About this RNA: This 80-nucleotide RNA from Eptatretus burgeri belongs to the Rfam family "mir-1 microRNA precursor family".

Nucleotides: 080
Base pairs, nucleotide, nucleotide: 007074009072010071011070013068014067015066016065017064018063019062020061021060022059024057027053028052029051030050031049
Number, partner (000 for none) and nucleotide at each position: 001000a002000c003000c004000a005000a006000g007074u008000a009072u010071a011070c012000a013068u014067a015066c016065u017064u018063c019062u020061u021060u022059a023000c024057a025000u026000u027053c028052c029051a030050u031049a032000a033000c034000a035000g036000u037000c038000u039000a040000u041000c042000a043000c044000u045000c046000a047000u048000a049031u050030a051029u052028g053027g054000g055000u056000a057024u058000a059022u060021a061020a062019a063018g064017a065016a066015g067014u068013a069000c070011g071010u072009g073000a074007a075000c076000u077000u078000g079000g080000c
For this family Rfam cites "An extensive class of small RNAs in Caenorhabditis elegans" (Lee and Ambros, Science, 2001). From the family's description: This family represents the microRNA (miRNA) mir-1 family. miRNAs are transcribed as ~70nt precursors (modelled here) and subsequently processed by the Dicer enzyme to give a ~22nt product. In this case the mature sequence comes from the 3' arm of the precursor. The extents of the hairpin precursors are not generally known and are estimated based on hairpin prediction. Its family is annotated with RISC complex and miRNA-mediated post-transcriptional gene silencing in the Gene Ontology. The family's consensus secondary structure was predicted with RNAalifold. NCBI's taxonomy places the organism under Eukaryota, Eumetazoa, Chordata, Myxini, Eptatretus.